[Rfam]
RNA sequence: AAUUGCUGCAAUGAGCCUACAGACCUGUAAUGAUCUGCACAAAUGAUUGCAAAUUUCUAAGAACAUCUAAGGGGCUGAUUGUGGUA
Number, nucleotide and partner (000 for none) at each position: 001a000002a085003u084004u083005g082006c081007u000008g000009c000010a000011a000012u000013g000014a000015g000016c000017c000018u000019a000020c000021a000022g000023a000024c000025c000026u000027g000028u000029a000030a000031u000032g000033a000034u000035c000036u000037g000038c000039a000040c000041a000042a000043a000044u000045g000046a000047u000048u000049g000050c000051a000052a000053a000054u000055u000056u000057c000058u000059a000060a000061g000062a000063a000064c000065a000066u000067c000068u000069a000070a000071g000072g000073g000074g000075c000076u000077g000078a000079u000080u000081g006082u005083g004084g003085u002086a000